RNA sequence: CCACCAUCCCGAGCGGCCGAGAGACCUGGAUCGUUGACGCCGCAGCAACCCUUACCUGCAUGCAGGAGAACGGGUGCUACUGCCAGGAGCGAUGGAGU
Numbered sequence: 001c002c003a004c005c006a007u008c009c010c011g012a013g014c015g016g017c018c019g020a021g022a023g024a025c026c027u028g029g030a031u032c033g034u035u036g037a038c039g040c041c042g043c044a045g046c047a048a049c050c051c052u053u054a055c056c057u058g059c060a061u062g063c064a065g066g067a068g069a070a071c072g073g074g075u076g077c078u079a080c081u082g083c084c085a086g087g088a089g090c091g092a093u094g095g096a097g098u
Stems, first nucleotide, its partner, number of pairs: 002097001004095005013043005021032002026086004044078004049074002052069002082090001
Notes:
A member of the RNA family "SAM riboswitch aptamer (S box leader)" from Arthrobacter subterraneus, 98 nucleotides long.